[Rfam]
RNA sequence: UGGGCUGGUCGAAAGACCCGGGUCCAACCGAUUUGGUAGGCAGACUGCCU
Numbered sequence: 001u002g003g004g005c006u007g008g009u010c011g012a013a014a015g016a017c018c019c020g021g022g023u024c025c026a027a028c029c030g031a032u033u034u035g036g037u038a039g040g041c042a043g044a045c046u047g048c049c050u
Stems, first nucleotide, its partner, number of pairs: 001026006007018004